RNA sequence: UUCUCGGUAGUAUAGUGGUUAGUAUGCAGGCUUGUCAAGUCUUCGGACAAGAUUCGCCUGAGACCCGGGUUCAAUUCCCGGCCGGGAAG
Numbered sequence: 001u002u003c004u005c006g007g008u009a010g011u012a013u014a015g016u017g018g019u020u021a022g023u024a025u026g027c028a029g030g031c032u033u034g035u036c037a038a039g040u041c042u043u044c045g046g047a048c049a050a051g052a053u054u055c056g057c058c059u060g061a062g063a064c065c066c067g068g069g070u071u072c073a074a075u076u077c078c079c080g081g082c083c084g085g086g087a088a089g
Stems, first nucleotide, its partner, number of pairs: 001088007010025004027060005065081005